Source information: Plant signal recognition particle RNA: a 304-nucleotide RNA from Triticum aestivum. By type it is a non-coding RNA gene. The source organism's lineage runs through Eukaryota, Embryophyta, commelinids, Triticodae and Triticum.
RNA sequence: GCCGAGCUUAGUUGCGAGAGCUUGUAACCCGAGUGGGGGCAUUAAGGUGAUAUGGACGCUGUUGUAGAGCUGCGGGCCUGGUCUGGGUGUGCUAUUGCUGGCCCGCCCGUUCCAAGUUGCGUAGUGGACCGGUUGGGGCCUAUGCGAAAGCUGGGCCUCACGAUCCAUAAUGUGGCAGGCAUAGCGUGAGGCUGGCUUCACAGAGCAGCGACAACUGCCCGCUUCCAACGGUGGAAGGAUAACGGGCCGCUGCACUCCUGGCCCGCUUGGGCCUCGCAGCCUACUCCAACGAACCAUCACUUUU
Numbered sequence: 001g002c003c004g005a006g007c008u009u010a011g012u013u014g015c016g017a018g019a020g021c022u023u024g025u026a027a028c029c030c031g032a033g034u035g036g037g038g039g040c041a042u043u044a045a046g047g048u049g050a051u052a053u054g055g056a057c058g059c060u061g062u063u064g065u066a067g068a069g070c071u072g073c074g075g076g077c078c079u080g081g082u083c084u085g086g087g088u089g090u091g092c093u094a095u096u097g098c099u100g101g102c103c104c105g106c107c108c109g110u111u112c113c114a115a116g117u118u119g120c121g122u123a124g125u126g127g128a129c130c131g132g133u134u135g136g137g138g139c140c141u142a143u144g145c146g147a148a149a150g151c152u153g154g155g156c157c158u159c160a161c162g163a164u165c166c167a168u169a170a171u172g173u174g175g176c177a178g179g180c181a182u183a184g185c186g187u188g189a190g191g192c193u194g195g196c197u198u199c200a201c202a203g204a205g206c207a208g209c210g211a212c213a214a215c216u217g218c219c220c221g222c223u224u225c226c227a228a229c230g231g232u233g234g235a236a237g238g239a240u241a242a243c244g245g246g247c248c249g250c251u252g253c254a255c256u257c258c259u260g261g262c263c264c265g266c267u268u269g270g271g272c273c274u275c276g277c278a279g280c281c282u283a284c285u286c287c288a289a290c291g292a293a294c295c296a297u298c299a300c301u302u303u304u
Stems, first nucleotide, its partner, number of pairs: 001040003004023006028037003044303008054294001057291002060288002064284004070279007078271002080264002083261005089255003093252002099249007107238002110236005116229004121225001123223003126166003130162002134160009144151002174219005185210003192203003